This 52-nucleotide sequence from Fontimonas thermophila belongs to the Rfam family "nhaA-I RNA". Rfam describes the family as follows. Acidobacteria, Alphaproteobacteria, Betaproteobacteria and Gammaproteobacteria, Verrucomicrobia, cand. division NC10. A search with the family's covariance model found it, with a score of 48 bits. Lineage of the source: Bacteria > Pseudomonadota > Nevskiales > Nevskiaceae > Fontimonas.

[Rfam]
RNA sequence: GGGUGUCGUGCGUCCUGCACGAUAGGUCAGCGAGUUGGUCGGGCCGCCAACC
Numbered sequence: 001g002g003g004u005g006u007c008g009u010g011c012g013u014c015c016u017g018c019a020c021g022a023u024a025g026g027u028c029a030g031c032g033a034g035u036u037g038g039u040c041g042g043g044c045c046g047c048c049a050a051c052c
Stems, first nucleotide, its partner, number of pairs: 005023007034051006